[Rfam]
Nucleotides: 077
Base pairs, nucleotide, nucleotide: 011067012066013065014064015063016062017061018060019059020058025054026053027052028051029050030049031048
Number, partner (000 for none) and nucleotide at each position: 001000u002000g003000u004000g005000g006000u007000a008000g009000c010000a011067g012066g013065a014064c015063u016062u017061a018060a019059c020058c021000a022000c023000a024000u025054g026053u027052g028051a029050a030049c031048a032000g033000u034000g035000u036000a037000a038000u039000a040000a041000u042000a043000c044000a045000a046000u047000a048031u049030g050029u051028u052027c053026a054025c055000a056000g057000u058020g059019g060018u061017u062016a063015a064014g065013u066012u067011c068000u069000g070000c071000c072000c073000c074000c075000c076000c077000a
mir-27 microRNA precursor family: a 77-nucleotide RNA sequence from Silurus meridionalis. The source organism's lineage runs through Eukaryota, Gnathostomata, Euteleostomi, Siluriformes and Silurus. Pairs were carried over by alignment from the consensus structure, which was predicted with RNAalifold. A search with the family's covariance model found it, with a score of 69 bits. Rfam 15.1 lists 1,440 matches to the family in 645 species. The literature on the family includes a 2008 paper in J Virol by Yao et al., "MicroRNA profile of Marek's disease virus-transformed T-cell line MSB-1: predominance of virus-encoded microRNAs". Gene Ontology terms of the family: RISC complex and miRNA-mediated post-transcriptional gene silencing.